[Rfam]
RNA sequence: AGGUGAUGUCUCCUUACCUUUAUCAACGGAGGCACUCGGCUCUGCUGUGGGCGGCGCUUUUCGCCGCCUUAGAUGCUGGUCGUCGGUGGCGGGGUGUGAGGACGGGUUAAAUGCCCA
Numbered sequence: 001a002g003g004u005g006a007u008g009u010c011u012c013c014u015u016a017c018c019u020u021u022a023u024c025a026a027c028g029g030a031g032g033c034a035c036u037c038g039g040c041u042c043u044g045c046u047g048u049g050g051g052c053g054g055c056g057c058u059u060u061u062c063g064c065c066g067c068c069u070u071a072g073a074u075g076c077u078g079g080u081c082g083u084c085g086g087u088g089g090c091g092g093g094g095u096g097u098g099a100g101g102a103c104g105g106g107u108u109a110a111a112u113g114c115c116c117a
Stems, first nucleotide, its partner, number of pairs: 001019004007034007035100004039095008049069008072084004104116004

Rfam assigns this 117-nucleotide RNA sequence from Bacillus velezensis to the family "epsC RNA". The organism belongs to Bacillus velezensis, within Bacteria. By type it is a cis-regulatory element.